[Rfam]
RNA sequence: CUCCCCGAAAUGCCUUUAGGGGCAGCCUUUGGCGUUGACUUAGAGAGGUAGAGCACAGGAUGGGCUAGGGUGGACUGAGUCCAUACCAACCCCAACCUAACUCCCAAUAAUCUAGGGUAUAGCCAAGGAGUGAGACAGUGCGGGCUAAGCUGCAUUGUCGAGAGGGGAACAGCCCAGACCGCCAGUUAAGGUCCCAAAGAAUAGGCUAAGUGGUAAAGGAUGUAGAGUUACAAAGACAGCCGGGAUGUUGGCUUAGAGGCAGCCAUCAUUUAAAGAGUUCGUAACAGAUCACCGGUCGAGUGACUCCGCGCCGAAAAUGAUCGGGGCUCAAGCCUAUCACCGAAACUGCGGCUUGGUAAGUUCUUCGGAACCUACCAGGGGUAGGGGAGCAUUCUGUACGCAAUGAAGGUCUGGUGCGAGCCAGGCUGGAGCGUACUGAAGAGAGUAU
Numbered sequence: 001c002u003c004c005c006c007g008a009a010a011u012g013c014c015u016u017u018a019g020g021g022g023c024a025g026c027c028u029u030u031g032g033c034g035u036u037g038a039c040u041u042a043g044a045g046a047g048g049u050a051g052a053g054c055a056c057a058g059g060a061u062g063g064g065c066u067a068g069g070g071u072g073g074a075c076u077g078a079g080u081c082c083a084u085a086c087c088a089a090c091c092c093c094a095a096c097c098u099a100a101c102u103c104c105c106a107a108u109a110a111u112c113u114a115g116g117g118u119a120u121a122g123c124c125a126a127g128g129a130g131u132g133a134g135a136c137a138g139u140g141c142g143g144g145c146u147a148a149g150c151u152g153c154a155u156u157g158u159c160g161a162g163a164g165g166g167g168a169a170c171a172g173c174c175c176a177g178a179c180c181g182c183c184a185g186u187u188a189a190g191g192u193c194c195c196a197a198a199g200a201a202u203a204g205g206c207u208a209a210g211u212g213g214u215a216a217a218g219g220a221u222g223u224a225g226a227g228u229u230a231c232a233a234a235g236a237c238a239g240c241c242g243g244g245a246u247g248u249u250g251g252c253u254u255a256g257a258g259g260c261a262g263c264c265a266u267c268a269u270u271u272a273a274a275g276a277g278u279u280c281g282u283a284a285c286a287g288a289u290c291a292c293c294g295g296u297c298g299a300g301u302g303a304c305u306c307c308g309c310g311c312c313g314a315a316a317a318u319g320a321u322c323g324g325g326g327c328u329c330a331a332g333c334c335u336a337u338c339a340c341c342g343a344a345a346c347u348g349c350g351g352c353u354u355g356g357u358a359a360g361u362u363c364u365u366c367g368g369a370a371c372c373u374a375c376c377a378g379g380g381g382u383a384g385g386g387g388a389g390c391a392u393u394c395u396g397u398a399c400g401c402a403a404u405g406a407a408g409g410u411c412u413g414g415u416g417c418g419a420g421c422c423a424g425g426c427u428g429g430a431g432c433g434u435a436c437u438g439a440a441g442a443g444a445g446u447a448u
Stems, first nucleotide, its partner, number of pairs: 001389006011024005026130001027128007036121001037118001039116006051104001052102002057098003061094004068087002070084005134159010164175003179351004184347003190341003199338001201337006218312002222309002225306007239296005245269003250264003270274001275290001279288002352379007390443001392440003396436006408427008